The record is a 133-nucleotide sequence from Microtus ochrogaster, which matches "Small nucleolar RNA SNORA55" in Rfam. From the family's description: ACA55 is a member of the H/ACA class of snoRNA that guide the sites of modification of uridines to pseudouridines. The family's RNA type in Rfam is H/ACA-box small nucleolar RNA.
RNA sequence: GCACUCAAAUCUUUCCCGGUCCUGCUGCCUGGUGCUGGUCUGGGGACAGACGGUGCUACAGUAGAGCAGAGAAUAUCCAGACGGGUCAUUUUCCAUUUGUCUUGGGGCCUGUCCCUACAGCUCUGCCACACUU
Numbered sequence: 001g002c003a004c005u006c007a008a009a010u011c012u013u014u015c016c017c018g019g020u021c022c023u024g025c026u027g028c029c030u031g032g033u034g035c036u037g038g039u040c041u042g043g044g045g046a047c048a049g050a051c052g053g054u055g056c057u058a059c060a061g062u063a064g065a066g067c068a069g070a071g072a073a074u075a076u077c078c079a080g081a082c083g084g085g086u087c088a089u090u091u092u093c094c095a096u097u098u099g100u101c102u103u104g105g106g107g108c109c110u111g112u113c114c115c116u117a118c119a120g121c122u123c124u125g126c127c128a129c130a131c132u133u
Stems, first nucleotide, its partner, number of pairs: 001056005013046007021038002066126006080113007093105003